[Rfam]
RNA sequence: AUGGACGCGGGAGGCGACGACACGCGGCCCCACCCCGGCCGCCGGGACCGUGCCGAGCCACUGACGAGACCGACCGCGAUCGC
Numbered sequence: 001a002u003g004g005a006c007g008c009g010g011g012a013g014g015c016g017a018c019g020a021c022a023c024g025c026g027g028c029c030c031c032a033c034c035c036c037g038g039c040c041g042c043c044g045g046g047a048c049c050g051u052g053c054c055g056a057g058c059c060a061c062u063g064a065c066g067a068g069a070c071c072g073a074c075c076g077c078g079a080u081c082g083c
Base pairs, nucleotide, nucleotide: 002082003081004080006078007077008076010075011074013059014058015057023052024051025050026049027048029046037071038070040066041065043063
Rfam assigns this 83-nucleotide RNA to the family "c-di-GMP-II-GAG riboswitch aptamer".